[Rfam]
RNA sequence: CUUGGACCCGGUGCGAUCCCGGGUGGCUAUUCCGGCCGCUGAUCCGCCGGACAACG
Dot-bracket structure: .....((((((.......))))))......((((((.........)))))).....